This 84-nucleotide RNA sequence from Prochlorococcus marinus belongs to the Rfam family "Cyanobacterial functional RNA 20". The literature on the family includes a 2008 paper in PLoS Genet by Steglich et al., "The challenge of regulation in a minimal photoautotroph: non-coding RNAs in Prochlorococcus". It is annotated as a small RNA. Taxonomically the source falls in Prochlorococcus marinus (Bacteria, Bacillati, Cyanobacteriota, Prochlorococcaceae). The family's consensus secondary structure was predicted with mfold.
RNA sequence: UAGCAUUUAGGAAGUGCUUAGCUGGUUAAAUCAGGUAAUCUGAAUUAAUUAGGUCGUCAUGAGCUUGCAGGUGGGAUACUUGCA
Numbered sequence: 001u002a003g004c005a006u007u008u009a010g011g012a013a014g015u016g017c018u019u020a021g022c023u024g025g026u027u028a029a030a031u032c033a034g035g036u037a038a039u040c041u042g043a044a045u046u047a048a049u050u051a052g053g054u055c056g057u058c059a060u061g062a063g064c065u066u067g068c069a070g071g072u073g074g075g076a077u078a079c080u081u082g083c084a
Base pairs, nucleotide, nucleotide: 002018003017004016005015006014007013008012024050025049026048027047028046029045031043032042033041034040067083068082069081070080071079072078